[Rfam]
RNA sequence: CUCUGGAGAGCCUCAAUUGAGCACCGAAGGAGCAAGCCGGGAAAUCCCGGCGAAUCUCUCAGGUAAAAGGACAGAG
Numbered sequence: 001c002u003c004u005g006g007a008g009a010g011c012c013u014c015a016a017u018u019g020a021g022c023a024c025c026g027a028a029g030g031a032g033c034a035a036g037c038c039g040g041g042a043a044a045u046c047c048c049g050g051c052g053a054a055u056c057u058c059u060c061a062g063g064u065a066a067a068a069g070g071a072c073a074g075a076g
Stems, first nucleotide, its partner, number of pairs: 001076005012021003023064003026060002030058003036051004
Annotation
A member of the RNA family "Glycine riboswitch aptamer" from Youngiibacter fragilis, 76 nucleotides long. Rfam links the family to the GO term glycine biosynthetic process. From the family's description: This family represents the bacterial glycine riboswitch.